RNA: eL15-Euryarchaeota ribosomal protein leader
RNA sequence: GCGGACCAACCGUGUCCGCUGGGAUGUGGCCCAAACUGGGCUGAACCGUAAG
Numbered sequence: 001g002c003g004g005a006c007c008a009a010c011c012g013u014g015u016c017c018g019c020u021g022g023g024a025u026g027u028g029g030c031c032c033a034a035a036c037u038g039g040g041c042u043g044a045a046c047c048g049u050a051a052g
Stems, first nucleotide, its partner, number of pairs: 001019005020048003028042005